[Rfam]
The record is a 107-nucleotide RNA from Dysgonomonas hofstadii, which matches "Bacteroidales small SRP" in Rfam. The family is grouped with related families in Rfam's "SRP clan". On this family, see Ryan et al., Nat Commun 2020: "A high-resolution transcriptome map identifies small RNA regulation of metabolism in the gut microbe Bacteroides thetaiotaomicron". The family's consensus secondary structure is taken from published work.
RNA sequence: UUGUCGCGGGUAAGUCCUAUACGGCCAGCUCCUGAUUAAUCCCCCAGGGCUUGAUCGCAGCAAGGGCAGUCGGUCGUAGCGGCGCGAUAUAGUAAGCUUGCCCACUU
Numbered sequence: 001u002u003g004u005c006g007c008g009g010g011u012a013a014g015u016c017c018u019a020u021a022c023g024g025c026c027a028g029c030u031c032c033u034g035a036u037u038a039a040u041c042c043c044c045c046a047g048g049g050c051u052u053g054a055u056c057g058c059a060g061c062a063a064g065g066g067c068a069g070u071c072g073g074u075c076g077u078a079g080c081g082g083c084g085c086g087a088u089a090u091a092g093u094a095a096g097c098u099u100g101c102c103c104a105c106u107u
Stems, first nucleotide, its partner, number of pairs: 008103008017092005022086002024083002